RNA sequence: UUCACCAGCACGGGAGAACCGGUCAGACCGGUGCCGAAGGAGCAACCGCCCCGGAAACUCUCAGGCCAAAGGGACCGCGCUGGACAG
Dot-bracket structure: .....((((.(((.....((((.....)))).(((((..(((...((.....))...))))).)))........))).)))).....
Description: A member of the RNA family "Glycine riboswitch aptamer" from Lutimaribacter saemankumensis, 87 nucleotides long. The literature on the family includes a 2017 paper in MBio by Babina et al., "In Vivo Behavior of the Tandem Glycine Riboswitch in Bacillus subtilis". A search with the family's covariance model found it, with a score of 61 bits.